[Rfam]
RNA sequence: GCUGGGGUGACCCAGAAUCUGAAGGAAGUCGCAAGCAAAGUGUUGAUAUGACGCACAGGAAUCGUAUGAGACUGUUUAUCUGGAUGAGGAAGUAAAUACCUCUAAAGUUCGGCACUUACACGGAAAGAUGGGCAGUAGAUACGGCAUGUAUAAGCGUAAGCCGUCAAC
Numbered sequence: 001g002c003u004g005g006g007g008u009g010a011c012c013c014a015g016a017a018u019c020u021g022a023a024g025g026a027a028g029u030c031g032c033a034a035g036c037a038a039a040g041u042g043u044u045g046a047u048a049u050g051a052c053g054c055a056c057a058g059g060a061a062u063c064g065u066a067u068g069a070g071a072c073u074g075u076u077u078a079u080c081u082g083g084a085u086g087a088g089g090a091a092g093u094a095a096a097u098a099c100c101u102c103u104a105a106a107g108u109u110c111g112g113c114a115c116u117u118a119c120a121c122g123g124a125a126a127g128a129u130g131g132g133c134a135g136u137a138g139a140u141a142c143g144g145c146a147u148g149u150a151u152a153a154g155c156g157u158a159a160g161c162c163g164u165c166a167a168c
Base pairs, nucleotide, nucleotide: 002015003014004013005012006011028168029167031165035161036160040155041154043153044152045151046149047148048147049146050145062144063143064142065141066140071136072135073134075132076131077130078129079128080127081126082110083109084108085107088103089102090101
RNA: Group II catalytic intron D1-D4-3